[Rfam]
RNA sequence: ACUCAAGCAAUGAAAAGAAGAGUAAGCUAUUGAUGUCUUAUACAGAGAACUCCACAAAGCUGAGAAGGAGGAAAGAAUAGGUGGCUGAACAUGGUCUUGGAGCUAUCGCACCGAAUAUCUUAGGAUUUAGGCUGCGACGGGUGCACCCGUUAAAGUGCCAGGGUAUAAUCAGAAAUUCAUUCUGACGUACUUGUUGAGGCUGAUGUGUAAACAUUGGCGAACCGGGGUGGUACCACGAAGUUAAAGCUCUCGUCCCCAGG
Numbered sequence: 001a002c003u004c005a006a007g008c009a010a011u012g013a014a015a016a017g018a019a020g021a022g023u024a025a026g027c028u029a030u031u032g033a034u035g036u037c038u039u040a041u042a043c044a045g046a047g048a049a050c051u052c053c054a055c056a057a058a059g060c061u062g063a064g065a066a067g068g069a070g071g072a073a074a075g076a077a078u079a080g081g082u083g084g085c086u087g088a089a090c091a092u093g094g095u096c097u098u099g100g101a102g103c104u105a106u107c108g109c110a111c112c113g114a115a116u117a118u119c120u121u122a123g124g125a126u127u128u129a130g131g132c133u134g135c136g137a138c139g140g141g142u143g144c145a146c147c148c149g150u151u152a153a154a155g156u157g158c159c160a161g162g163g164u165a166u167a168a169u170c171a172g173a174a175a176u177u178c179a180u181u182c183u184g185a186c187g188u189a190c191u192u193g194u195u196g197a198g199g200c201u202g203a204u205g206u207g208u209a210a211a212c213a214u215u216g217g218c219g220a221a222c223c224g225g226g227g228u229g230g231u232a233c234c235a236c237g238a239a240g241u242u243a244a245a246g247c248u249c250u251c252g253u254c255c256c257c258a259g260g
Stems, first nucleotide, its partner, number of pairs: 007103002015098004025086006038074002050070004106137005111131002138149003199218007224257004235253004
Background
This 260-nucleotide RNA from Alkalicella caledoniensis belongs to the Rfam family "T-box leader". By type it is a cis-regulatory leader. The source organism's lineage runs through Bacteria, Clostridia, Eubacteriales, Proteinivoracaceae and Alkalicella. The family's consensus secondary structure is taken from published work.